The record is a 63-nucleotide sequence from Massilia sp. Root335, which matches "Betaproteobacteria toxic small RNA" in Rfam. Rfam's curators write: Overexpression in amino aid rich medium attenuates growth, suggesting role in repressing amino acid intake and metabolism. The match comes from Rfam's covariance-model search (53 bits).
RNA sequence: UGUCUCCACUAUUCUCCUCCAAGAAAAUAGUUUGAAGCCCGCUCAAUCAGCGGGCUUUUUUUU
Numbered sequence: 001u002g003u004c005u006c007c008a009c010u011a012u013u014c015u016c017c018u019c020c021a022a023g024a025a026a027a028u029a030g031u032u033u034g035a036a037g038c039c040c041g042c043u044c045a046a047u048c049a050g051c052g053g054g055c056u057u058u059u060u061u062u063u
Base pairs, nucleotide, nucleotide: 008031009030010029011028012027013024014023036056037055038054039053040052041051042050043049

On this family, see Kimelman et al., Genome Res 2012: "A vast collection of microbial genes that are toxic to bacteria".